[Rfam]
RNA sequence: UUUGUUUGUUUUGUUUUGUUUUACUUAUGAACAAAGACUUGUAGACAGGUGCAAAGCUUCAAUCCUCCUUUGCAAGCCAGAACUCAUUUAGUGUGAGUUUAGAUACAUAUAAGAAGGAAAAUA
Numbered sequence: 001u002u003u004g005u006u007u008g009u010u011u012u013g014u015u016u017u018g019u020u021u022u023a024c025u026u027a028u029g030a031a032c033a034a035a036g037a038c039u040u041g042u043a044g045a046c047a048g049g050u051g052c053a054a055a056g057c058u059u060c061a062a063u064c065c066u067c068c069u070u071u072g073c074a075a076g077c078c079a080g081a082a083c084u085c086a087u088u089u090a091g092u093g094u095g096a097g098u099u100u101a102g103a104u105a106c107a108u109a110u111a112a113g114a115a116g117g118a119a120a121a122u123a
Base pairs, nucleotide, nucleotide: 001049002048003047004046005045007043013038014036015035016034017033018032019031024029063119065117066116069113070112071111072110078102080100081099082098083097084096085095086094087093
Source information: Rfam assigns this 123-nucleotide RNA from Spermophilus dauricus to the family "Small nucleolar RNA SNORA40". Rfam classes the family as an H/ACA-box small nucleolar RNA. Gene Ontology terms of the family: RNA processing and nucleolus. It scores 75 bits against the family's covariance model. Rfam describes the family as follows. The snoRNA ACA 40 belongs to the H/ACA family of snoRNAs and guides the pseudouridylation of 28S rRNA subunit at position U4565. NB This family has a high threshold value to exclude a large number of closely related sequences that do not appear to have conserved H and ACA boxes, and may be pseudogenes. The literature on the family includes a 1997 paper in J Mol Biol by Ofengand and Bakin, "Mapping to nucleotide resolution of pseudouridine residues in large subunit ribosomal RNAs from representative eukaryotes, prokaryotes, archaebacteria, mitochondria and chloroplasts". The organism belongs to Spermophilus, within Eukaryota.